RNA sequence: AUGCCUUAAACUAAUGAGUAAGGAAAAUAGCAGACCGGUUUGACUUAUCGGUCCCCAAUCAUAUUUGGGCUAUUGUUUGCAGGGCAUAGGCUGUCCUGUCGUGUCCCCUACUUAGGGACGUGGCGGCGUUAGCGGUCUGCCCG
Numbered sequence: 001a002u003g004c005c006u007u008a009a010a011c012u013a014a015u016g017a018g019u020a021a022g023g024a025a026a027a028u029a030g031c032a033g034a035c036c037g038g039u040u041u042g043a044c045u046u047a048u049c050g051g052u053c054c055c056c057a058a059u060c061a062u063a064u065u066u067g068g069g070c071u072a073u074u075g076u077u078u079g080c081a082g083g084g085c086a087u088a089g090g091c092u093g094u095c096c097u098g099u100c101g102u103g104u105c106c107c108c109u110a111c112u113u114a115g116g117g118a119c120g121u122g123g124c125g126g127c128g129u130u131a132g133c134g135g136u137c138u139g140c141c142c143g
Stems, first nucleotide, its partner, number of pairs: 004023005033053007055068004082142004088138007097125005103119005
The record is a 143-nucleotide RNA from Schistosoma mansoni, which matches "U12 minor spliceosomal RNA" in Rfam. It is annotated as a spliceosomal small nuclear RNA. The match comes from Rfam's covariance-model search (79 bits).